[Rfam]
RNA sequence: ACACGUUGCGCCGUGUAUAAAUAGCCAGUUAGGGCGCAAGCGUCCCGGCAUUUUGCCGGGGGUCUGG
Numbered sequence: 001a002c003a004c005g006u007u008g009c010g011c012c013g014u015g016u017a018u019a020a021a022u023a024g025c026c027a028g029u030u031a032g033g034g035c036g037c038a039a040g041c042g043u044c045c046c047g048g049c050a051u052u053u054u055g056c057c058g059g060g061g062g063u064c065u066g067g
Base pairs, nucleotide, nucleotide: 001016002015003014004013006039007038008037009036010035011034025067026066027065028064033041043061044060045059046058047057048056049055

A member of the RNA family "Pistol ribozyme" from butyrate-producing bacterium SS3/4, 67 nucleotides long. The source organism's lineage runs through Bacteria, Bacillati, Bacillota, Clostridia and Eubacteriales. Rfam links the family to the GO term catalytic activity. Rfam's curators put it in the seed alignment. The family's consensus secondary structure is taken from published work.